[Rfam]
RNA sequence: UAUGGAUAAUGGCAAAACUGUCGAAAAGCAGCGACGCAAAGCCACGGGUCUUCUCACUAUUUAUGUGAUGACAGCGGGUUACCCAA
Numbered sequence: 001u002a003u004g005g006a007u008a009a010u011g012g013c014a015a016a017a018c019u020g021u022c023g024a025a026a027a028g029c030a031g032c033g034a035c036g037c038a039a040a041g042c043c044a045c046g047g048g049u050c051u052u053c054u055c056a057c058u059a060u061u062u063a064u065g066u067g068a069u070g071a072c073a074g075c076g077g078g079u080u081a082c083c084c085a086a
Base pairs, nucleotide, nucleotide: 012037013036018031019030020029021028040080041079042078043077045076047075048072049071050070055067056066057065
The record is an 86-nucleotide RNA from Paenibacillus sp. MY03, which matches "c-di-GMP-I riboswitch aptamer" in Rfam. It scores 58 bits against the family's covariance model. Taxonomically the source falls in Paenibacillus (Bacteria, Bacillota, Bacilli, Caryophanales).